[Rfam]
RNA sequence: GCAUUGCAGGUCUGUGGCUGAAAGUCGAUGGUAGUCGCAGCCAAAGCGAUCCACGUAACGCAGGAAAAUCCUGCUGAGCAUGGUGCGGUUUAGAAGUAAGUCCUGCCGGAAAAACCGAGAGGGUUAGUAGUGAGAGGAAGACACCGGGUAGCGAAAGCUCCAGCAGGCGAGUGUGGGGUCAAAAGCCAGGUCAGCUGCCGUGC
Numbered sequence: 001g002c003a004u005u006g007c008a009g010g011u012c013u014g015u016g017g018c019u020g021a022a023a024g025u026c027g028a029u030g031g032u033a034g035u036c037g038c039a040g041c042c043a044a045a046g047c048g049a050u051c052c053a054c055g056u057a058a059c060g061c062a063g064g065a066a067a068a069u070c071c072u073g074c075u076g077a078g079c080a081u082g083g084u085g086c087g088g089u090u091u092a093g094a095a096g097u098a099a100g101u102c103c104u105g106c107c108g109g110a111a112a113a114a115c116c117g118a119g120a121g122g123g124u125u126a127g128u129a130g131u132g133a134g135a136g137g138a139a140g141a142c143a144c145c146g147g148g149u150a151g152c153g154a155a156a157g158c159u160c161c162a163g164c165a166g167g168c169g170a171g172u173g174u175g176g177g178g179u180c181a182a183a184a185g186c187c188a189g190g191u192c193a194g195c196u197g198c199c200g201u202g203c
Stems, first nucleotide, its partner, number of pairs: 001203004006198004012194003015188005028174003031041001033090007050083002058075001063070001081181001102167005107117003121160004130152002136145002
A member of the RNA family "raiA RNA", 203 nucleotides long. The family's consensus secondary structure is taken from published work. It is annotated as a riboswitch.